[Rfam]
RNA sequence: GCCUGGUGGUUCCUAGAGUCGGCUCCAAAGUGCUGAACUGUAGGUUUUUUUGAACAGGCGCAUAUUGAUUUCUGCGAUUUUAUGCAUGGAAGCUGCCACUAUAGCAGCCGUCCAUAGCCCGGUUGCAGAUACACUG
Numbered sequence: 001g002c003c004u005g006g007u008g009g010u011u012c013c014u015a016g017a018g019u020c021g022g023c024u025c026c027a028a029a030g031u032g033c034u035g036a037a038c039u040g041u042a043g044g045u046u047u048u049u050u051u052g053a054a055c056a057g058g059c060g061c062a063u064a065u066u067g068a069u070u071u072c073u074g075c076g077a078u079u080u081u082a083u084g085c086a087u088g089g090a091a092g093c094u095g096c097c098a099c100u101a102u103a104g105c106a107g108c109c110g111u112c113c114a115u116a117g118c119c120c121g122g123u124u125g126c127a128g129a130u131a132c133a134c135u136g
Stems, first nucleotide, its partner, number of pairs: 001059004008049001012044004017039001019036005072128001074126006084118002086115004092108005